[Rfam]
RNA sequence: UGAGCAUGAUGAUGAUUAUUCUUAUAUUAACCGACAAUUUCGUGAAUGGAAUACAAUACCUCCUACUCAUACUGA
Numbered sequence: 001u002g003a004g005c006a007u008g009a010u011g012a013u014g015a016u017u018a019u020u021c022u023u024a025u026a027u028u029a030a031c032c033g034a035c036a037a038u039u040u041c042g043u044g045a046a047u048g049g050a051a052u053a054c055a056a057u058a059c060c061u062c063c064u065a066c067u068c069a070u071a072c073u074g075a
Stems, first nucleotide, its partner, number of pairs: 006070004031049001